[Rfam]
RNA: MIR6217 microRNA precursor family
Organism: Miscanthus lutarioriparius
RNA sequence: ACUUAUUCUAUGGUCACUUUGAGUUACGAUAGUUACUAUGCUAAUUUACGAGACUACAGUUACUCCUUACUAAGUGAUUUACUAUAAUAUUAUGGUAAAUAUCACUAUGAGUUGUAGUAACACGAGUAUCGUAAAUGCAUAUUCAUAUUAUCAUAAAUUGGUACAAACAUUAUAGUUAAUCAAGGUGGCCAUAGAAUAAGU
Numbered sequence: 001a002c003u004u005a006u007u008c009u010a011u012g013g014u015c016a017c018u019u020u021g022a023g024u025u026a027c028g029a030u031a032g033u034u035a036c037u038a039u040g041c042u043a044a045u046u047u048a049c050g051a052g053a054c055u056a057c058a059g060u061u062a063c064u065c066c067u068u069a070c071u072a073a074g075u076g077a078u079u080u081a082c083u084a085u086a087a088u089a090u091u092a093u094g095g096u097a098a099a100u101a102u103c104a105c106u107a108u109g110a111g112u113u114g115u116a117g118u119a120a121c122a123c124g125a126g127u128a129u130c131g132u133a134a135a136u137g138c139a140u141a142u143u144c145a146u147a148u149u150a151u152c153a154u155a156a157a158u159u160g161g162u163a164c165a166a167a168c169a170u171u172a173u174a175g176u177u178a179a180u181c182a183a184g185g186u187g188g189c190c191a192u193a194g195a196a197u198a199a200g201u
Stems, first nucleotide, its partner, number of pairs: 001201020024178001026176002029173005037165001039163010052152002056148001058146001059144001067134004074129003078125002080119009090109001095103001